RNA: Small nucleolar RNA SNORA64/SNORA10 family
RNA sequence: CUUCUCUCAGCUCCGCUUAACCACGUUCUGUAUGUGGUUGGCGUAUUUUGGAGAGAGAGAGAAAGGCCCUCCUAAUGCACGACAGACUGGCCCACAGUGGCCUGUUUGUUCCUAGGAGUGCGACAGCC
Numbered sequence: 001c002u003u004c005u006c007u008c009a010g011c012u013c014c015g016c017u018u019a020a021c022c023a024c025g026u027u028c029u030g031u032a033u034g035u036g037g038u039u040g041g042c043g044u045a046u047u048u049u050g051g052a053g054a055g056a057g058a059g060a061g062a063a064a065g066g067c068c069c070u071c072c073u074a075a076u077g078c079a080c081g082a083c084a085g086a087c088u089g090g091c092c093c094a095c096a097g098u099g100g101c102c103u104g105u106u107u108g109u110u111c112c113u114a115g116g117a118g119u120g121c122g123a124c125a126g127c128c
Stems, first nucleotide, its partner, number of pairs: 002061007011053005019039008069118005075113001077111001084107003089102004